[Rfam]
RNA: SAM (S-adenosyl methionine) riboswitch aptamer
RNA sequence: GGUCAUGAGUGCCAGCGACAAGCCCCGGCUCGCUGGCCGGCAACCCUCCUUCGCGGUGGGGUGCCCCGGGUGAGGACCUGGCAUCCCUCAGACCGUGUGGGUGCAAGCGCGAGCC
Number, nucleotide and partner (000 for none) at each position: 001g078002g077003u076004c075005a000006u000007g000008a000009g038010u000011g037012c036013c035014a034015g033016c032017g000018a000019c000020a000021a030022g029023c000024c000025c000026c000027g000028g000029c022030u021031c000032g016033c015034u014035g013036g012037c011038c009039g065040g064041c063042a000043a000044c061045c060046c059047u000048c056049c055050u000051u000052c000053g000054c000055g049056g048057u000058g000059g046060g045061g044062u000063g041064c040065c039066c000067c000068g000069g000070g000071u000072g000073a000074g000075g004076a003077c002078c001079u000080g000081g104082c103083a102084u101085c100086c099087c000088u097089c000090a000091g000092a000093c000094c000095g000096u000097g088098u000099g086100g085101g084102u083103g082104c081105a000106a000107g000108c000109g000110c000111g000112a000113g000114c000115c000